[Rfam]
RNA sequence: GGGACAUGAUGAGUGGUUAUUACCUGCAAUCGUUGCGAGAUGGGUGUCCGCCCCAACGCCUGGUUACGACAUUUGGGCACUCCCAACUCAACCACCUGAUCCC
Numbered sequence: 001g002g003g004a005c006a007u008g009a010u011g012a013g014u015g016g017u018u019a020u021u022a023c024c025u026g027c028a029a030u031c032g033u034u035g036c037g038a039g040a041u042g043g044g045u046g047u048c049c050g051c052c053c054c055a056a057c058g059c060c061u062g063g064u065u066a067c068g069a070c071a072u073u074u075g076g077g078c079a080c081u082c083c084c085a086a087c088u089c090a091a092c093c094a095c096c097u098g099a100u101c102c103c
Stems, first nucleotide, its partner, number of pairs: 001103004014094005023039001025037003042082007061075003
Small nucleolar RNA Z279/snoR105/snoR108: a 103-nucleotide sequence from Hibiscus syriacus. Clan: snoU13 clan. It scores 75 bits against the family's covariance model. Gene Ontology terms of the family: RNA processing and nucleolus. It is annotated as a C/D-box small nucleolar RNA. Rfam's curators write: This family includes the plant snoRNAs known as Z279, snoR105 and snoR108.